RNA sequence: UAGCUAAGAGAUUAAAACACUAUUCGGUUGGUAGUCCGAAUACAGCUUAAAAACUGUCAGUAACCUGCCCCUGGGUUGUCCAUUCUCGAUAUCAGCAUUU
Numbered sequence: 001u002a003g004c005u006a007a008g009a010g011a012u013u014a015a016a017a018c019a020c021u022a023u024u025c026g027g028u029u030g031g032u033a034g035u036c037c038g039a040a041u042a043c044a045g046c047u048u049a050a051a052a053a054c055u056g057u058c059a060g061u062a063a064c065c066u067g068c069c070c071c072u073g074g075g076u077u078g079u080c081c082a083u084u085c086u087c088g089a090u091a092u093c094a095g096c097a098u099u100u
Stems, first nucleotide, its partner, number of pairs: 005091002008087004022041006042057004047052001067076003

azaaromatic riboswitch aptamer (yjdF RNA): a 100-nucleotide RNA from Clostridium sp. 'deep sea'. The family's consensus secondary structure is taken from published work.